About this RNA:
The family of this 152-nucleotide RNA from Trema orientale is "small nucleolar RNA snoR134". The family's consensus secondary structure was predicted with RNAalifold. The source organism's lineage runs through Eukaryota, Viridiplantae, Spermatophyta, Magnoliopsida and Trema. It scores 109 bits against the family's covariance model. Its family is annotated with RNA processing and nucleolus in the Gene Ontology. For this family Rfam cites "Mining small RNA sequencing data: a new approach to identify small nucleolar RNAs in Arabidopsis" (Chen and Wu, Nucleic Acids Res, 2009). It is annotated as an H/ACA-box small nucleolar RNA.

[Rfam]
RNA sequence: UUGCACGAUGCACCCCGGGCUUCCCUGACGAUUUGUUUUUUAUGACGGCGAAAGCCCCAAUGCACGUGCUAAAGCGACGUCGUUCAGUGUUGCAGUUUGGCCCUUCGUACAUCUUCCCACGGCUGAUCUGUGUCAAAGCAACGGCUACAUCU
Numbered sequence: 001u002u003g004c005a006c007g008a009u010g011c012a013c014c015c016c017g018g019g020c021u022u023c024c025c026u027g028a029c030g031a032u033u034u035g036u037u038u039u040u041u042a043u044g045a046c047g048g049c050g051a052a053a054g055c056c057c058c059a060a061u062g063c064a065c066g067u068g069c070u071a072a073a074g075c076g077a078c079g080u081c082g083u084u085c086a087g088u089g090u091u092g093c094a095g096u097u098u099g100g101c102c103c104u105u106c107g108u109a110c111a112u113c114u115u116c117c118c119a120c121g122g123c124u125g126a127u128c129u130g131u132g133u134c135a136a137a138g139c140a141a142c143g144g145c146u147a148c149a150u151c152u
Stems, first nucleotide, its partner, number of pairs: 003069005010063002017057005022051002024048002079145006088135002091132005100123003